RNA sequence: UACAUUUGCACCGAAAUCAGAAAACCUGAUUCUACAUAAUAAUCAUUUAAAUAAUAUUAGCAUG
Numbered sequence: 001u002a003c004a005u006u007u008g009c010a011c012c013g014a015a016a017u018c019a020g021a022a023a024a025c026c027u028g029a030u031u032c033u034a035c036a037u038a039a040u041a042a043u044c045a046u047u048u049a050a051a052u053a054a055u056a057u058u059a060g061c062a063u064g
Base pairs, nucleotide, nucleotide: 015031016030017029018028019027